[Rfam]
RNA sequence: AGAUUGCUUUGGAAUGACACGAUCACUCCCGCUGAGCGAGACGCCCGACAGCCAUCGGGAAUAUCGUGUCGGUCCAAAGCUCUUU
Numbered sequence: 001a002g003a004u005u006g007c008u009u010u011g012g013a014a015u016g017a018c019a020c021g022a023u024c025a026c027u028c029c030c031g032c033u034g035a036g037c038g039a040g041a042c043g044c045c046c047g048a049c050a051g052c053c054a055u056c057g058g059g060a061a062u063a064u065c066g067u068g069u070c071g072g073u074c075c076a077a078a079g080c081u082c083u084u085u
Stems, first nucleotide, its partner, number of pairs: 006080002009077004016070008027060005033054002036052002

Rfam assigns this 85-nucleotide RNA from Alligator mississippiensis to the family "mir-425 microRNA precursor family". The match comes from Rfam's covariance-model search (96 bits). For this family Rfam cites "The genome of a songbird" (Warren et al., Nature, 2010). The family's consensus secondary structure was predicted with RNAalifold. The source organism's lineage runs through Eukaryota, Chordata, Tetrapoda, Sauropsida and Alligator.